[Rfam]
RNA sequence: ACAACAUUCGAACUGUCGGUCUACCGAGCAAUAUCACACGCGCAGUGGAAGAUCUUCCUUUUAAA
Numbered sequence: 001a002c003a004a005c006a007u008u009c010g011a012a013c014u015g016u017c018g019g020u021c022u023a024c025c026g027a028g029c030a031a032u033a034u035c036a037c038a039c040g041c042g043c044a045g046u047g048g049a050a051g052a053u054c055u056u057c058c059u060u061u062u063a064a065a
Stems, first nucleotide, its partner, number of pairs: 006062001010058001012056001015053003020049005026043001028041002
Dot-bracket structure: .....(...(.(..(((..(((((.(.((..........)).).))))).)))..).)...)...

mir-2774 microRNA precursor family: a 65-nucleotide RNA sequence from Bombyx mori. The family's consensus secondary structure was predicted with RNAalifold. On this family, see Liu et al., BMC Genomics 2010: "MicroRNAs of Bombyx mori identified by Solexa sequencing".